Rfam assigns this 89-nucleotide RNA from Vagococcus silagei to the family "BsrC". Lineage of the source: Bacteria > Bacilli > Lactobacillales > Enterococcaceae > Vagococcus.
RNA sequence: UCUCGCUUAAACAAUGCAAUCCCUACCUCUAAAGCAUCUAUUGUAGCUCUUUAGCUACGCCUAUAAUGGAUAAACUUCCUAAAAAUAAA
Numbered sequence: 001u002c003u004c005g006c007u008u009a010a011a012c013a014a015u016g017c018a019a020u021c022c023c024u025a026c027c028u029c030u031a032a033a034g035c036a037u038c039u040a041u042u043g044u045a046g047c048u049c050u051u052u053a054g055c056u057a058c059g060c061c062u063a064u065a066a067u068g069g070a071u072a073a074a075c076u077u078c079c080u081a082a083a084a085a086u087a088a089a
Stems, first nucleotide, its partner, number of pairs: 035068002039063002042059007

By type it is a small RNA.
The 301 nucleotide sequence from Kouji Nakamura has been trimmed to a highly conserved ~85 nucleotide long core to form this family.
On this family, see Saito et al., Gene 2008: "Novel small RNA-encoding genes in the intergenic regions of Bacillus subtilis".